[Rfam]
RNA sequence: UUGAAAGCGGGAGGAGAGACCACGGUUGUGGCGCCGAAGGAGCAAACCCAUUUUCCGGGUGAAUCUCUCAGGCAAAAGGAGGCCCGCUGGACG
Numbered sequence: 001u002u003g004a005a006a007g008c009g010g011g012a013g014g015a016g017a018g019a020c021c022a023c024g025g026u027u028g029u030g031g032c033g034c035c036g037a038a039g040g041a042g043c044a045a046a047c048c049c050a051u052u053u054u055c056c057g058g059g060u061g062a063a064u065c066u067c068u069c070a071g072g073c074a075a076a077a078g079g080a081g082g083c084c085c086g087c088u089g090g091a092c093g
Base pairs, nucleotide, nucleotide: 006088007087008086009085010084011083020031021030022029023028033073034072035071036069037068040067041066042065046060047059048058049057
Rfam assigns this 93-nucleotide RNA sequence from Paenactinomyces guangxiensis to the family "Glycine riboswitch aptamer".
Rfam links the family to the GO term glycine biosynthetic process.